[Rfam]
RNA sequence: GCUAAGAAGAGGGAGAAAGAGAGGUCCUUCGAGCAUUGGGAAUGAUAACAUAGAGGAAAGCCUAACUUAUUGGUUCUUCACCUCAUGUGUUGAGGUGGAAAUCCAGUUUGGUAUUUCCUCAUGCCUGUCAUCCCUAUUGUUCUUAAGCGCUCCUUCCUCUUCCUUUUUGCU
Numbered sequence: 001g002c003u004a005a006g007a008a009g010a011g012g013g014a015g016a017a018a019g020a021g022a023g024g025u026c027c028u029u030c031g032a033g034c035a036u037u038g039g040g041a042a043u044g045a046u047a048a049c050a051u052a053g054a055g056g057a058a059a060g061c062c063u064a065a066c067u068u069a070u071u072g073g074u075u076c077u078u079c080a081c082c083u084c085a086u087g088u089g090u091u092g093a094g095g096u097g098g099a100a101a102u103c104c105a106g107u108u109u110g111g112u113a114u115u116u117c118c119u120c121a122u123g124c125c126u127g128u129c130a131u132c133c134c135u136a137u138u139g140u141u142c143u144u145a146a147g148c149g150c151u152c153c154u155u156c157c158u159c160u161u162c163c164u165u166u167u168u169g170c171u
Stems, first nucleotide, its partner, number of pairs: 009162005015156003021152003026147001028145001031142005037136004042131006049123003053119001055118005060112002
RNA: MIR2118 microRNA precursor family